[Rfam]
RNA sequence: AAUGACCGAUACCCAUGACUGGUCACCAAAACCAGUGGGGAUUACCUAUUGAUAGGCUGCUGUAUUGAGUACAUUACCGCCCCCCUCAUACCUCAACAAUGUUUCGCACUGGUGCAUAGGUAUCGUUUA
Numbered sequence: 001a002a003u004g005a006c007c008g009a010u011a012c013c014c015a016u017g018a019c020u021g022g023u024c025a026c027c028a029a030a031a032c033c034a035g036u037g038g039g040g041a042u043u044a045c046c047u048a049u050u051g052a053u054a055g056g057c058u059g060c061u062g063u064a065u066u067g068a069g070u071a072c073a074u075u076a077c078c079g080c081c082c083c084c085c086u087c088a089u090a091c092c093u094c095a096a097c098a099a100u101g102u103u104u105c106g107c108a109c110u111g112g113u114g115c116a117u118a119g120g121u122a123u124c125g126u127u128u129a
Stems, first nucleotide, its partner, number of pairs: 004127002007125007019035005037085004045056004057079001059077001061073005
The family of this 129-nucleotide RNA is "EFASI RNA".